[Rfam]
This 62-nucleotide RNA sequence from Croceicoccus marinus belongs to the Rfam family "terC RNA". The family's RNA type in Rfam is cis-regulatory element.
Nucleotides: 062
Base pairs, nucleotide, nucleotide: 006056007055009053010052011051012050022045023044024043025042026041027040028039029038030037031036
Number, partner (000 for none) and nucleotide at each position: 001000c002000a003000g004000g005000c006056g007055g008000g009053c010052c011051g012050g013000g014000c015000u016000c017000c018000u019000c020000u021000g022045g023044c024043g025042u026041g027040u028039a029038u030037c031036c032000u033000g034000c035000g036031g037030g038029a039028u040027g041026c042025g043024c044023g045022u046000g047000a048000u049000g050012u051011c052010g053009g054000a055007c056006c057000g058000u059000a060000u061000c062000g